[Rfam]
This 66-nucleotide RNA from Sitophilus oryzae belongs to the Rfam family "mir-2 microRNA precursor family".
RNA sequence: CCGCUCAUCAGGUGGUUGUGAAAUGUUAAUAUAAAUUCAUAUCACAGCCAGCUUUGAUGAGCGAUG
Numbered sequence: 001c002c003g004c005u006c007a008u009c010a011g012g013u014g015g016u017u018g019u020g021a022a023a024u025g026u027u028a029a030u031a032u033a034a035a036u037u038c039a040u041a042u043c044a045c046a047g048c049c050a051g052c053u054u055u056g057a058u059g060a061g062c063g064a065u066g
Stems, first nucleotide, its partner, number of pairs: 005060007012052001013050009024041003
The family's consensus secondary structure was predicted with PFOLD.
For this family Rfam cites "An extensive class of small RNAs in Caenorhabditis elegans" (Lee and Ambros, Science, 2001).
Gene Ontology terms of the family: RISC complex and miRNA-mediated post-transcriptional gene silencing.